[Rfam]
RNA: PyrR binding site
RNA sequence: AUGACCUUUAAAGUUAGUCCCGUGAGGCUAAGAAGGAAUCUUGUGUUUAGAAUGCGUUUUUUGAGCAUCCGCAUAUCCAAAGAGACCAUCUUGGACCCCAGGGUUCAGGAUGGUCUUUUCU
Numbered sequence: 001a002u003g004a005c006c007u008u009u010a011a012a013g014u015u016a017g018u019c020c021c022g023u024g025a026g027g028c029u030a031a032g033a034a035g036g037a038a039u040c041u042u043g044u045g046u047u048u049a050g051a052a053u054g055c056g057u058u059u060u061u062u063g064a065g066c067a068u069c070c071g072c073a074u075a076u077c078c079a080a081a082g083a084g085a086c087c088a089u090c091u092u093g094g095a096c097c098c099c100a101g102g103g104u105u106c107a108g109g110a111u112g113g114u115c116u117u118u119u120c121u
Base pairs, nucleotide, nucleotide: 005036006035007034008033009032014031015030016029017028018027019026046080047079050076052074053073054072055071056070059067083116084115085114086113087112088111089110090109091108092107093106094105095104096103